nrdJ RNA: an 83-nucleotide RNA sequence from Streptomyces sp. NTH33.
NCBI's taxonomy places the organism under Bacteria, Bacillati, Actinomycetes, Kitasatosporales, Streptomyces.
[Rfam]
RNA sequence: ACCGGUCGCGGGCGGCAGCGAGGGUGCCCGCGAUGUCAGACAGAACACCGUGCUCCGGAACAAAAGGGGCACUUCAGGGCGUU
Numbered sequence: 001a002c003c004g005g006u007c008g009c010g011g012g013c014g015g016c017a018g019c020g021a022g023g024g025u026g027c028c029c030g031c032g033a034u035g036u037c038a039g040a041c042a043g044a045a046c047a048c049c050g051u052g053c054u055c056c057g058g059a060a061c062a063a064a065a066g067g068g069g070c071a072c073u074u075c076a077g078g079g080c081g082u083u
Stems, first nucleotide, its partner, number of pairs: 005034010016023001050072007
Rfam classes the family as a small RNA.